[Rfam]
RNA sequence: UGAUAUUAGGAAUGAGUAUGUAGCCUGCAGUGCUUGCACUUUGCAGGCUACAUAUGAAAUGACUUAACAGACAUGAGGAAGAAGCGCGAUAGCGCGGAUUCCGAAUGGAUGUAGGAAUGCGAGAGCGAAGCGUAGCAUUCCGUAUAUCA
Numbered sequence: 001u002g003a004u005a006u007u008a009g010g011a012a013u014g015a016g017u018a019u020g021u022a023g024c025c026u027g028c029a030g031u032g033c034u035u036g037c038a039c040u041u042u043g044c045a046g047g048c049u050a051c052a053u054a055u056g057a058a059a060u061g062a063c064u065u066a067a068c069a070g071a072c073a074u075g076a077g078g079a080a081g082a083a084g085c086g087c088g089a090u091a092g093c094g095c096g097g098a099u100u101c102c103g104a105a106u107g108g109a110u111g112u113a114g115g116a117a118u119g120c121g122a123g124a125g126c127g128a129a130g131c132g133u134a135g136c137a138u139u140c141c142g143u144a145u146a147u148c149a
Base pairs, nucleotide, nucleotide: 001149002148003147004146005145006144010063013058016055017054018053019052020051021050022049023048024047025046026045027044028043029040030039031038032037067112068111069110072107073106074105077102078101079100080099084095085094086093087092114141115140116139117138118137119136120135125131126130